[Rfam]
RNA: bip internal ribosome entry site (IRES)
Organism: Loxodonta africana
RNA sequence: CGCCGACCGAGACAUCACUGACUGACCGAUUUGGGUGUUUUGAGAGUGCCGGGGUAAGCGCCGCGGCCUUCUUCUCCAGCCUUAUCUUUCGCUUCGGCAGCUACGCCUCCUCACCUCAGGCUCCGGUCUUUUUCAGGUCGGUAAUUCUCGUGCGCUUCCGUGCUGCGCCCUGUGAGUGAAUUGCCAGCGACGUCCUGCCUGCCUGCUGACCGACUGGCCGACUGCGCCGGCAAAAUGAAACUCUCCCUGGUGGCGGCGGUGCUGCUG
Numbered sequence: 001c002g003c004c005g006a007c008c009g010a011g012a013c014a015u016c017a018c019u020g021a022c023u024g025a026c027c028g029a030u031u032u033g034g035g036u037g038u039u040u041u042g043a044g045a046g047u048g049c050c051g052g053g054g055u056a057a058g059c060g061c062c063g064c065g066g067c068c069u070u071c072u073u074c075u076c077c078a079g080c081c082u083u084a085u086c087u088u089u090c091g092c093u094u095c096g097g098c099a100g101c102u103a104c105g106c107c108u109c110c111u112c113a114c115c116u117c118a119g120g121c122u123c124c125g126g127u128c129u130u131u132u133u134c135a136g137g138u139c140g141g142u143a144a145u146u147c148u149c150g151u152g153c154g155c156u157u158c159c160g161u162g163c164u165g166c167g168c169c170c171u172g173u174g175a176g177u178g179a180a181u182u183g184c185c186a187g188c189g190a191c192g193u194c195c196u197g198c199c200u201g202c203c204u205g206c207u208g209a210c211c212g213a214c215u216g217g218c219c220g221a222c223u224g225c226g227c228c229g230g231c232a233a234a235a236u237g238a239a240a241c242u243c244u245c246c247c248u249g250g251u252g253g254c255g256g257c258g259g260u261g262c263u264g265c266u267g
Stems, first nucleotide, its partner, number of pairs: 004256001007253003016162003020158001030119002033116004058106003063101002066098001166178003170174001